[Rfam]
RNA sequence: UUUCCCAUUUAUUUGCUGUUCUAGUCUCUCAGUGAUAAGAGUAGUUAUACGCAUGGGAUAACAUAAUAUUGGGCCAUUGUAAAUUGAGAUGAAUAAUGUUUUGUCUUUUCUGCAUGGUGUAGGCAUUG
Numbered sequence: 001u002u003u004c005c006c007a008u009u010u011a012u013u014u015g016c017u018g019u020u021c022u023a024g025u026c027u028c029u030c031a032g033u034g035a036u037a038a039g040a041g042u043a044g045u046u047a048u049a050c051g052c053a054u055g056g057g058a059u060a061a062c063a064u065a066a067u068a069u070u071g072g073g074c075c076a077u078u079g080u081a082a083a084u085u086g087a088g089a090u091g092a093a094u095a096a097u098g099u100u101u102u103g104u105c106u107u108u109u110c111u112g113c114a115u116g117g118u119g120u121a122g123g124c125a126u127u128g
Stems, first nucleotide, its partner, number of pairs: 003058006015045007022037002025035002069122003073118004078114004086107008
Shown here is a 128-nucleotide sequence from Cricetulus griseus, a member of the family "Small nucleolar RNA SNORA20". Its family is annotated with nucleolus and RNA processing in the Gene Ontology. The source organism's lineage runs through Eukaryota, Opisthokonta, Metazoa, Rodentia and Cricetulus. The base pairs follow the family's consensus structure, which was predicted with ILM. ACA20 is a member of the H/ACA class of snoRNA that guide the sites of modification of uridines to pseudouridines. A search with the family's covariance model found it, with a score of 123 bits.